[Rfam]
RNA sequence: GUGUUCCCUAGAGUUCCUCUGAACACUUCAUUGGGACUCUUGAAUCCUUACUGAAGUGUUUGGAUGAACUCCUGGGCUCAU
Numbered sequence: 001g002u003g004u005u006c007c008c009u010a011g012a013g014u015u016c017c018u019c020u021g022a023a024c025a026c027u028u029c030a031u032u033g034g035g036a037c038u039c040u041u042g043a044a045u046c047c048u049u050a051c052u053g054a055a056g057u058g059u060u061u062g063g064a065u066g067a068a069c070u071c072c073u074g075g076g077c078u079c080a081u
Stems, first nucleotide, its partner, number of pairs: 006076003011071006018064003022061002024058007032050004